[Rfam]
RNA sequence: GAAAAAAACAUCAUUGAGUGCAGCGUUGAUGAAUAUUUGUCGGUGCUUUGCCAAUAUUUCUCUAUACUAGCCAGGAUUCUUUCACCAGCGCUGCACUCGAUCAUGUUUUUU
Dot-bracket structure: .....((((((.((((((((((((((((.(((.................................................))).)))))))))))))))).))))))...
MIR397 microRNA precursor family: a 111-nucleotide RNA sequence from Citrus unshiu.
A search with the family's covariance model found it, with a score of 86 bits.
The literature on the family includes a 2009 paper in BMC Genomics by Mica et al., "High throughput approaches reveal splicing of primary microRNA transcripts and tissue specific expression of mature microRNAs in Vitis vinifera".
Gene Ontology terms of the family: RISC complex and miRNA-mediated post-transcriptional gene silencing.